Background: A member of the RNA family "ffh sRNA" from Jannaschia rubra, 52 nucleotides long. It scores 54 bits against the family's covariance model. Rfam classes the family as a small RNA. Pairs were carried over by alignment from the consensus structure, which is taken from published work. The source organism's lineage runs through Bacteria, Pseudomonadati, Pseudomonadota, Alphaproteobacteria and Jannaschia.
RNA sequence: CGAUCCGGGGAUCGCCCUCCGCCAGCGUUUCACGCCCGCGGGGGCGUUCGCG
Numbered sequence: 001c002g003a004u005c006c007g008g009g010g011a012u013c014g015c016c017c018u019c020c021g022c023c024a025g026c027g028u029u030u031c032a033c034g035c036c037c038g039c040g041g042g043g044g045c046g047u048u049c050g051c052g
Stems, first nucleotide, its partner, number of pairs: 016044007025035004